[Rfam]
RNA sequence: GGCAUGGGGAAUGCGAUAGCCCCACGAGGCGGCAUGCCGAAAUAUCGCGUCCGACUUUCGUAGGGACGCUCCAUG
Numbered sequence: 001g002g003c004a005u006g007g008g009g010a011a012u013g014c015g016a017u018a019g020c021c022c023c024a025c026g027a028g029g030c031g032g033c034a035u036g037c038c039g040a041a042a043u044a045u046c047g048c049g050u051c052c053g054a055c056u057u058u059c060g061u062a063g064g065g066a067c068g069c070u071c072c073a074u075g
Stems, first nucleotide, its partner, number of pairs: 005024005047069006
chrB-a RNA: a 75-nucleotide sequence from Rhizorhabdus wittichii. The organism belongs to Rhizorhabdus wittichii, within Bacteria. It is one of the family's seed sequences. The family has 163 seed sequences and 347 matches in Rfam 15.1.